[Rfam]
RNA: Small nucleolar RNA snoR77
Nucleotides: 130
Stems, first nucleotide, its partner, number of pairs: 002042004007038002009035007017027001064124003069118003076111005082105003087097003
Number, partner (000 for none) and nucleotide at each position: 001000a002042g003041g004040c005039a006000a007038c008037c009035u010034c011033u012032u013031u014030c015029u016000g017027a018000a019000u020000a021000u022000u023000u024000u025000u026000a027017u028000g029015a030014g031013a032012a033011g034010g035009a036000a037008g038007g039005u040004g041003u042002u043000a044000a045000u046000c047000u048000g049000g050000u051000c052000g053000g054000a055000a056000a057000u058000c059000a060000a061000u062000a063000u064124c065123u066122u067000u068000u069118g070117c071116u072000c073000u074000u075000c076111a077110u078109a079108c080107u081000u082105g083104c084103u085000g086000a087097g088096a089095c090000u091000u092000a093000u094000g095089g096088u097087u098000u099000u100000u101000g102000a103084a104083g105082c106000u107080g108079g109078u110077a111076u112000a113000g114000u115000a116071a117070g118069c119000a120000a121000u122066a123065a124064g125000g126000a127000c128000a129000u130000c